Rfam assigns this 142-nucleotide sequence from Neogobius melanostomus to the family "Small nucleolar RNA U109". The base pairs follow the family's consensus structure, which was predicted with WAR. The literature on the family includes a 1981 paper in Biochem Biophys Res Commun by Reddy et al., "Pseudouridine residues in the 5'-terminus of uridine-rich nuclear RNA I (U1 RNA)". By type it is an H/ACA-box small nucleolar RNA. NCBI's taxonomy places the organism under Eukaryota, Euteleostomi, Clupeocephala, Ctenosquamata, Neogobius.
RNA sequence: GAGCAUGUCAGACCACUGUGUCCCUCUAAAGCCAUAGGGAAGGACAGUGACUCAAAAACAUGCCAGAGCAACAUUCUCUGGAGUUAACAGGGCCAGUGGUCAACCAGACAUGUCCAUUUGGUAGUAACAGACUCCAACAUUU
Numbered sequence: 001g002a003g004c005a006u007g008u009c010a011g012a013c014c015a016c017u018g019u020g021u022c023c024c025u026c027u028a029a030a031g032c033c034a035u036a037g038g039g040a041a042g043g044a045c046a047g048u049g050a051c052u053c054a055a056a057a058a059c060a061u062g063c064c065a066g067a068g069c070a071a072c073a074u075u076c077u078c079u080g081g082a083g084u085u086a087a088c089a090g091g092g093c094c095a096g097u098g099g100u101c102a103a104c105c106a107g108a109c110a111u112g113u114c115c116a117u118u119u120g121g122u123a124g125u126a127a128c129a130g131a132c133u134c135c136a137a138c139a140u141u142u
Stems, first nucleotide, its partner, number of pairs: 003063006020045004025040003080135004092122002096118001097116003101112002
Dot-bracket structure: ..((((((...........((((.(((..........))).))))............))))))................((((........((..((((.((........)).))).)..)).........)))).......